[Rfam]
RNA sequence: CUUCACCGACCCGAGCCACAACGGCCGCUCCGCCGAACGCCCUUGGCCGUACGUGGCGAGCAGGGCCUGCGCCUC
Numbered sequence: 001c002u003u004c005a006c007c008g009a010c011c012c013g014a015g016c017c018a019c020a021a022c023g024g025c026c027g028c029u030c031c032g033c034c035g036a037a038c039g040c041c042c043u044u045g046g047c048c049g050u051a052c053g054u055g056g057c058g059a060g061c062a063g064g065g066c067c068u069g070c071g072c073c074u075c
Stems, first nucleotide, its partner, number of pairs: 015025003031071003038065001043060002047056003

This 75-nucleotide RNA sequence from Streptomyces virginiae belongs to the Rfam family "ASpks TB sRNA".
Rfam's curators put it in the seed alignment.
The family has 77 seed sequences and 9,052 matches in Rfam 15.1.
The family's RNA type in Rfam is antisense RNA.
The organism belongs to Streptomyces, within Bacteria.
For this family Rfam cites "Identification of small RNAs in Mycobacterium tuberculosis" (Arnvig and Young, Mol Microbiol, 2009).